[Rfam]
Nucleotides: 154
Stems, first nucleotide, its partner, number of pairs: 003038006015030005064096002067093004072088005122149001124147010
Number, partner (000 for none) and nucleotide at each position: 001000a002000g003038c004037a005036c006035c007034u008033u009000u010000a011000a012000g013000a014000a015030c016029a017028g018027u019026c020000c021000a022000g023000a024000g025000a026019g027018g028017c029016u030015g031000g032000c033008a034007a035006g036005g037004u038003g039000a040000a041000c042000g043000a044000a045000u046000g047000u048000u049000a050000g051000a052000a053000g054000c055000g056000g057000a058000u059000u060000u061000u062000u063000c064096g065095g066000g067093g068092a069091a070090u071000c072088g073087a074086g075085u076084c077000u078000u079000a080000a081000u082000a083000u084076g085075g086074c087073u088072c089000a090070a091069u092068u093067u094000a095065u096064c097000c098000g099000u100000a101000u102000c103000c104000g105000g106000a107000u108000c109000u110000c111000u112000c113000g114000u115000u116000a117000u118000g119000u120000c121000c122149g123000c124147a125146a126145a127144c128143c129142u130141u131140g132139c133138c134000u135000a136000a137000u138133g139132g140131c141130a142129a143128g144127g145126u146125u147124u148000u149122u150000u151000u152000u153000a154000u